The record is a 103-nucleotide RNA sequence from Sporanaerobacter acetigenes, which matches "Glycine riboswitch aptamer" in Rfam. The family has 44 seed sequences and 9,425 matches in Rfam 15.1.

[Rfam]
RNA sequence: AUGAAAAAUGCGGGAGAGAUCAAGUUUUUUGACGCCGAAGGAGUAAGUAUGGGAUUUGCCAUUCUAUUACGAAGCUCUCAGGCAAAGGGACCGUGUUUGGACA
Numbered sequence: 001a002u003g004a005a006a007a008a009u010g011c012g013g014g015a016g017a018g019a020u021c022a023a024g025u026u027u028u029u030u031g032a033c034g035c036c037g038a039a040g041g042a043g044u045a046a047g048u049a050u051g052g053g054a055u056u057u058g059c060c061a062u063u064c065u066a067u068u069a070c071g072a073a074g075c076u077c078u079c080a081g082g083c084a085a086a087g088g089g090a091c092c093g094u095g096u097u098u099g100g101a102c103a
Stems, first nucleotide, its partner, number of pairs: 006098008020032004034083003037079002041077003047070002